[Rfam]
RNA: U11 spliceosomal RNA
Organism: Theobroma umbraticum
RNA sequence: CAAAACGGUUGGCUAAAUGUGCCACGCUCACCCUCAUCUGGUGGGUGCUGUAUGGCUAUCAAGACAUAUGGCCGACAUAAUUUGUGGAACCCUAAUAGGGUUGGCUUGCUUGGCCGACCCUCUUA
Numbered sequence: 001c002a003a004a005a006c007g008g009u010u011g012g013c014u015a016a017a018u019g020u021g022c023c024a025c026g027c028u029c030a031c032c033c034u035c036a037u038c039u040g041g042u043g044g045g046u047g048c049u050g051u052a053u054g055g056c057u058a059u060c061a062a063g064a065c066a067u068a069u070g071g072c073c074g075a076c077a078u079a080a081u082u083u084g085u086g087g088a089a090c091c092c093u094a095a096u097a098g099g100g101u102u103g104g105c106u107u108g109c110u111u112g113g114c115c116g117a118c119c120c121u122c123u124u125a
Stems, first nucleotide, its partner, number of pairs: 008076002010024004025047008048071007094123001099119008